[Rfam]
RNA sequence: GGGCUACAAGACGACGUGAACGGGUUCCGGCUCUGACUUCGAUCGGGGCCUGGCCCAGGAAAGUCCCCGGGCCGACACACCGCAGAGAUGCGGGCUCGGAAACGAGUGAGCUUCGUGCGUGGAAUCCGAUUUGCACUUGUGCGAAUGGGCUGAGACGCGUGUGGAGCCUUAUGGAUUCAACGCCGGAGUGGACUUGGCCGAUUGCACAGUUAUUCACGUGGCCCGAUUGGGCUAACUGAACGGGGCUUAUGAUCUUGUGGCC
Numbered sequence: 001g002g003g004c005u006a007c008a009a010g011a012c013g014a015c016g017u018g019a020a021c022g023g024g025u026u027c028c029g030g031c032u033c034u035g036a037c038u039u040c041g042a043u044c045g046g047g048g049c050c051u052g053g054c055c056c057a058g059g060a061a062a063g064u065c066c067c068c069g070g071g072c073c074g075a076c077a078c079a080c081c082g083c084a085g086a087g088a089u090g091c092g093g094g095c096u097c098g099g100a101a102a103c104g105a106g107u108g109a110g111c112u113u114c115g116u117g118c119g120u121g122g123a124a125u126c127c128g129a130u131u132u133g134c135a136c137u138u139g140u141g142c143g144a145a146u147g148g149g150c151u152g153a154g155a156c157g158c159g160u161g162u163g164g165a166g167c168c169u170u171a172u173g174g175a176u177u178c179a180a181c182g183c184c185g186g187a188g189u190g191g192a193c194u195u196g197g198c199c200g201a202u203u204g205c206a207c208a209g210u211u212a213u214u215c216a217c218g219u220g221g222c223c224c225g226a227u228u229g230g231g232c233u234a235a236c237u238g239a240a241c242g243g244g245g246c247u248u249a250u251g252a253u254c255u256u257g258u259g260g261c262c
Stems, first nucleotide, its partner, number of pairs: 002262010014219006022056004027052001029050008061248003065245004081092004094107005110189003117183004122178001135176001137174002147169004157162001221232004
RNA: RNase MRP
Organism: Rhododendron simsii